[Rfam]
RNA sequence: UCGAUCCUUCGGGGCAGGGUGGAAUUCCCGACCGGCGGUGAUGGCAAUAAGCCUCAGUCCGUGACCCGCUCUAUUAGCGGUGGAUUCGGUGCAAAUCCGAAACCGACAGUUACAGUCUGGAUGGGAGAAGGAUGAC
Dot-bracket structure: ...(((((((......(((.......))).[[((((((..................[[))))...((...........))....(((((.......)))))]])).(((.....]]))).......)))))))...

Notes:
Shown here is a 136-nucleotide RNA from Thermoflavimicrobium dichotomicum, a member of the family "FMN riboswitch aptamer (RFN element)". For this family Rfam cites "Regulation of riboflavin biosynthesis and transport genes in bacteria by transcriptional and translational attenuation" (Vitreschak et al., Nucleic Acids Res, 2002). The family's consensus secondary structure is taken from published work. The organism belongs to Thermoflavimicrobium, within Bacteria. Gene Ontology term of the family: FMN binding. A search with the family's covariance model found it, with a score of 112 bits.